[Rfam]
RNA sequence: GUAGCUGUCACCGCAAGGUUUCUGCCAUGUCGGCAGAUCAGACUUCUGCGGUAGGCAUUGCCUGCCGCUCCCGGCCCAGCCGGACUUUACUAACCCGCCGGUGCAGGCACCGGC
Numbered sequence: 001g002u003a004g005c006u007g008u009c010a011c012c013g014c015a016a017g018g019u020u021u022c023u024g025c026c027a028u029g030u031c032g033g034c035a036g037a038u039c040a041g042a043c044u045u046c047u048g049c050g051g052u053a054g055g056c057a058u059u060g061c062c063u064g065c066c067g068c069u070c071c072c073g074g075c076c077c078a079g080c081c082g083g084a085c086u087u088u089a090c091u092a093a094c095c096c097g098c099c100g101g102u103g104c105a106g107g108c109a110c111c112g113g114c
Base pairs, nucleotide, nucleotide: 010019011018012017021037022036023035024034025033026032048068049067050066051065052064053063054062055061071083072082073081074080097114098113099112100111101110102109
RNA: Pseudomon-groES RNA
Organism: Pseudomonas sp. HAR-UPW-AIA-41